[Rfam]
RNA sequence: AAGGAGCAAUACCGACCCUCUUGAUAGAAUAAGAGGGUCGGUAUUGCUCCUU
Numbered sequence: 001a002a003g004g005a006g007c008a009a010u011a012c013c014g015a016c017c018c019u020c021u022u023g024a025u026a027g028a029a030u031a032a033g034a035g036g037g038u039c040g041g042u043a044u045u046g047c048u049c050c051u052u
Stems, first nucleotide, its partner, number of pairs: 001052013018035006
Shown here is a 52-nucleotide RNA from Papaver rhoeas, a member of the family "Plastid-psbA-3 3UTR RNA". The literature on the family includes a 2023 paper in Plant Commun by Richter et al., "Retrograde signaling in plants: A critical review focusing on the GUN pathway and beyond". Plastid psbA-3 is a non-coding RNA (ncRNA) present in plastids.